[Rfam]
RNA sequence: GCGGGCGUGGCGAAAUGGCAUACGCGGCAGAUUUAGGUUCUGUUGGUGGAGACACUGUGGGGGUUCGAAUCCCCCCGCCCGCA
Numbered sequence: 001g002c003g004g005g006c007g008u009g010g011c012g013a014a015a016u017g018g019c020a021u022a023c024g025c026g027g028c029a030g031a032u033u034u035a036g037g038u039u040c041u042g043u044u045g046g047u048g049g050a051g052a053c054a055c056u057g058u059g060g061g062g063g064u065u066c067g068a069a070u071c072c073c074c075c076c077g078c079c080c081g082c083a
Stems, first nucleotide, its partner, number of pairs: 001082007010025003027043005059075005
Shown here is an 83-nucleotide sequence from Nonomuraea cavernae, a member of the family "tRNA". The family's consensus secondary structure is taken from published work. The source organism's lineage runs through Bacteria, Actinomycetota, Streptosporangiales, Streptosporangiaceae and Nonomuraea. A search with the family's covariance model found it, with a score of 57 bits.